This 136-nucleotide RNA from Cyanistes caeruleus belongs to the Rfam family "Small nucleolar RNA SNORA31". About the family: ACA31 (SNORA31) belongs to the H/ACA class of snoRNAs which are thought to guide the sites of modification of uridines to pseudouridines. Rfam 15.1 lists 2,094 matches to the family in 626 species. On this family, see Huttenhofer et al., EMBO J 2001: "RNomics: an experimental approach that identifies 201 candidates for novel, small, non-messenger RNAs in mouse". It is annotated as an H/ACA-box small nucleolar RNA. Taxonomically the source falls in Cyanistes (Eukaryota, Deuterostomia, Saurischia, Telluraves).

RNA sequence: AUGCAUCUGUUUGACAGACCUGGAGCAAACACUGUUGCUUCCUAGGUUCUCUCUUGAGAUGCAACAGUAAUGAGUUCCUUGCGCUUUCUACCUGUCUGACCUCAUGGCAGUUUGGAUUGAAUAAAGGAACACAAAU
Number, nucleotide and partner (000 for none) at each position: 001a000002u063003g062004c061005a060006u059007c058008u057009g000010u000011u000012u000013g051014a000015c000016a000017g048018a047019c046020c045021u000022g000023g040024a039025g038026c037027a036028a035029a000030c000031a000032c000033u000034g000035u028036u027037g026038c025039u024040u023041c000042c000043u000044a000045g020046g019047u018048u017049c000050u000051c013052u000053c000054u000055u000056g000057a008058g007059a006060u005061g004062c003063a002064a000065c000066a000067g000068u000069a000070a000071u000072g000073a000074g000075u000076u128077c127078c126079u125080u124081g000082c000083g000084c119085u000086u000087u116088c115089u114090a113091c000092c110093u109094g108095u107096c106097u000098g000099a000100c000101c000102u000103c000104a000105u000106g096107g095108c094109a093110g092111u000112u000113u090114g089115g088116a087117u000118u000119g084120a000121a000122u000123a000124a080125a079126g078127g077128a076129a000130c000131a000132c000133a000134a000135a000136u000